[Rfam]
RNA sequence: GCUGAUUGAUGUGGGGUCAUUGUAGAAGCGUGCUCGUCGCGACCCCUGCCAGCCCUUUUCAGGGCUGCAAUUCUACA
Numbered sequence: 001g002c003u004g005a006u007u008g009a010u011g012u013g014g015g016g017u018c019a020u021u022g023u024a025g026a027a028g029c030g031u032g033c034u035c036g037u038c039g040c041g042a043c044c045c046c047u048g049c050c051a052g053c054c055c056u057u058u059u060c061a062g063g064g065c066u067g068c069a070a071u072u073c074u075a076c077a
Stems, first nucleotide, its partner, number of pairs: 013046006021077007028040003050067007

This 77-nucleotide RNA sequence from Parnassius apollo belongs to the Rfam family "Mammalian CPEB3 ribozyme". Lineage of the source: Eukaryota > Opisthokonta > Mandibulata > Ditrysia > Parnassius. The mammalian CPEB3 ribozyme is a self cleaving RNA located in the second intron of the CPEB3 gene which belongs to a family of genes regulating messenger RNA polyadenylation. A search with the family's covariance model found it, with a score of 59 bits.